[Rfam]
RNA: RNase MRP
RNA sequence: UUCAUGAUCAAAGAUUUGUUAUCGAAGCCUACAAAAGAACUUUAAUUAGUUUCAUAAUGCUUUGGGGAAAGUCUCCCGCCAGAUAUGCGGAAACGUAGCGAAUCAUCAAUUCGUUUGAUCAAUGAAGUCGUGUUUAGAAAUGUUCAAUGGUGUUCCUGUAUGUUGUUUUCGAGGAAUGUAGUUGAGUAUAUCUGCCUGUAAAGCUUUGUUUCAUUUUUGUUUCAAUUGCAUUCUCUAAGGAGGUGUGCUCAUGUUAUCGGCGUUAGGUUCCUCUUGAACCUUUAUCUAUUUAUAGCUCUGACGCUGGUGUACAUGACGGUACUUCUUUACAUGGAUCUGACUGAGCAGAGAUGAGACAUUGUGGGUGGAUUGAAAAGUUGCGUGAGCCGGGAGCAAAACGUAGGGGAAAUGACUGUUUUACAUUUGUUUCAUGUACUUUAUUAUCAUAAUGCCUGCUUUUUUAAAGUGGUGUUUAAUUUAUUACUUUCGGCAGCGGGGUUUUGUACUCUAAAUGAUAGUUAUAACAAAUGAUCAGUUCACUUCUGAUUAACCCAAUGGAGCUUAUUCUUGGGUCAUGA
Numbered sequence: 001u002u003c004a005u006g007a008u009c010a011a012a013g014a015u016u017u018g019u020u021a022u023c024g025a026a027g028c029c030u031a032c033a034a035a036a037g038a039a040c041u042u043u044a045a046u047u048a049g050u051u052u053c054a055u056a057a058u059g060c061u062u063u064g065g066g067g068a069a070a071g072u073c074u075c076c077c078g079c080c081a082g083a084u085a086u087g088c089g090g091a092a093a094c095g096u097a098g099c100g101a102a103u104c105a106u107c108a109a110u111u112c113g114u115u116u117g118a119u120c121a122a123u124g125a126a127g128u129c130g131u132g133u134u135u136a137g138a139a140a141u142g143u144u145c146a147a148u149g150g151u152g153u154u155c156c157u158g159u160a161u162g163u164u165g166u167u168u169u170c171g172a173g174g175a176a177u178g179u180a181g182u183u184g185a186g187u188a189u190a191u192c193u194g195c196c197u198g199u200a201a202a203g204c205u206u207u208g209u210u211u212c213a214u215u216u217u218u219g220u221u222u223c224a225a226u227u228g229c230a231u232u233c234u235c236u237a238a239g240g241a242g243g244u245g246u247g248c249u250c251a252u253g254u255u256a257u258c259g260g261c262g263u264u265a266g267g268u269u270c271c272u273c274u275u276g277a278a279c280c281u282u283u284a285u286c287u288a289u290u291u292a293u294a295g296c297u298c299u300g301a302c303g304c305u306g307g308u309g310u311a312c313a314u315g316a317c318g319g320u321a322c323u324u325c326u327u328u329a330c331a332u333g334g335a336u337c338u339g340a341c342u343g344a345g346c347a348g349a350g351a352u353g354a355g356a357c358a359u360u361g362u363g364g365g366u367g368g369a370u371u372g373a374a375a376a377g378u379u380g381c382g383u384g385a386g387c388c389g390g391g392a393g394c395a396a397a398a399c400g401u402a403g404g405g406g407a408a409a410u411g412a413c414u415g416u417u418u419u420a421c422a423u424u425u426g427u428u429u430c431a432u433g434u435a436c437u438u439u440a441u442u443a444u445c446a447u448a449a450u451g452c453c454u455g456c457u458u459u460u461u462u463a464a465a466g467u468g469g470u471g472u473u474u475a476a477u478u479u480a481u482u483a484c485u486u487u488c489g490g491c492a493g494c495g496g497g498g499u500u501u502u503g504u505a506c507u508c509u510a511a512a513u514g515a516u517a518g519u520u521a522u523a524a525c526a527a528a529u530g531a532u533c534a535g536u537u538c539a540c541u542u543c544u545g546a547u548u549a550a551c552c553c554a555a556u557g558g559a560g561c562u563u564a565u566u567c568u569u570g571g572g573u574c575a576u577g578a
Stems, first nucleotide, its partner, number of pairs: 002578007009570003014529006022065007037052005069563003073560004086097004098114006446501001448499001452497006461490002464487001474483003531547005